[Rfam]
RNA sequence: AAUAAGUGAUGAAAAAAGUUUCGGUCCCAUAUGAUGGCCAGUGAUCACUUACAUUUUUCUGAUGUU
Numbered sequence: 001a002a003u004a005a006g007u008g009a010u011g012a013a014a015a016a017a018g019u020u021u022c023g024g025u026c027c028c029a030u031a032u033g034a035u036g037g038c039c040a041g042u043g044a045u046c047a048c049u050u051a052c053a054u055u056u057u058u059c060u061g062a063u064g065u066u
Stems, first nucleotide, its partner, number of pairs: 001066004

A member of the RNA family "Small nucleolar RNA SNORD73" from Cercocebus atys, 66 nucleotides long. The source organism's lineage runs through Eukaryota, Eumetazoa, Craniata, Euteleostomi and Cercocebus. Gene Ontology terms of the family: RNA processing and nucleolus. The base pairs follow the family's consensus structure, which was predicted with PFOLD. A search with the family's covariance model found it, with a score of 73 bits.